[Rfam]
RNA sequence: GCACAUACUUCUUUAUAUGCCCAUACUGAAUGAAAAUGCUAUGGAAUGUUAAGAAGUAUGUA
Numbered sequence: 001g002c003a004c005a006u007a008c009u010u011c012u013u014u015a016u017a018u019g020c021c022c023a024u025a026c027u028g029a030a031u032g033a034a035a036a037u038g039c040u041a042u043g044g045a046a047u048g049u050u051a052a053g054a055a056g057u058a059u060g061u062a
Base pairs, nucleotide, nucleotide: 003061004060005059006058007057008056009055010054011053012052013051015049016048017047018046021044022043023042024041025040

A member of the RNA family "mir-1 microRNA precursor family" from Xenopus tropicalis, 62 nucleotides long.
It is one of the family's seed sequences.
A reference for the family is Lee and Ambros (2001), "An extensive class of small RNAs in Caenorhabditis elegans", Science.